[Rfam]
This 80-nucleotide RNA sequence from Clostridium sp. DL-VIII belongs to the Rfam family "ZMP/ZTP riboswitch aptamer (pfl RNA motif)".
RNA sequence: AUAGAGUUAUACGACUGACGGAAGUGGGAUAAACCACAUGAAGUAUAACAAUUUAAAAGCCGACCGUCUGGGCAAAAGCC
Numbered sequence: 001a002u003a004g005a006g007u008u009a010u011a012c013g014a015c016u017g018a019c020g021g022a023a024g025u026g027g028g029a030u031a032a033a034c035c036a037c038a039u040g041a042a043g044u045a046u047a048a049c050a051a052u053u054u055a056a057a058a059g060c061c062g063a064c065c066g067u068c069u070g071g072g073c074a075a076a077a078g079c080c
Base pairs, nucleotide, nucleotide: 003052006049007048008047009046010045011044012043015040017068018067019066020065021064024037025036026035027034059073060072061071